A member of the RNA family "Small nucleolar RNA SNORA17" from Formicarius rufipectus, 137 nucleotides long. The match comes from Rfam's covariance-model search (48 bits). Gene Ontology terms of the family: nucleolus and RNA processing. Rfam 15.1 lists 5,784 matches to the family in 673 species. For this family Rfam cites "Mapping to nucleotide resolution of pseudouridine residues in large subunit ribosomal RNAs from representative eukaryotes, prokaryotes, archaebacteria, mitochondria and chloroplasts" (Ofengand and Bakin, J Mol Biol, 1997). The source organism's lineage runs through Eukaryota, Opisthokonta, Euteleostomi, Dipnotetrapodomorpha and Formicarius. By type it is an H/ACA-box small nucleolar RNA. Rfam describes the family as follows. snoRNA ACA 17 belongs to the H/ACA family of snoRNAs and is predicted to guide pseudouridylation of the 28S rRNA at positions U4659 and U4598. It shares the same host gene together with ACA43. NB This family has a high threshold value to exclude a large number of closely related sequences that do not appear to have conserved H and ACA boxes, and may be pseudogenes.
[Rfam]
RNA sequence: AUUGCAACUUAUAUGGUCAUUCAGGCGUGGCUGCAGUGCCACAUUUGUGUCAUUCGGUGGCAGAGAGGAUAAGGCGAGGUCUUCCCCUGGUGCUCUGACCCACGUGGGCUCCCAGGAUUUCUCAACAGCCUGACAUU
Numbered sequence: 001a002u003u004g005c006a007a008c009u010u011a012u013a014u015g016g017u018c019a020u021u022c023a024g025g026c027g028u029g030g031c032u033g034c035a036g037u038g039c040c041a042c043a044u045u046u047g048u049g050u051c052a053u054u055c056g057g058u059g060g061c062a063g064a065g066a067g068g069a070u071a072a073g074g075c076g077a078g079g080u081c082u083u084c085c086c087c088u089g090g091u092g093c094u095c096u097g098a099c100c101c102a103c104g105u106g107g108g109c110u111c112c113c114a115g116g117a118u119u120u121c122u123c124a125a126c127a128g129c130c131u132g133a134c135a136u137u
Stems, first nucleotide, its partner, number of pairs: 002063004008059001009057002013053001015051003022047003027042005072131004076123003083117003089113002092109004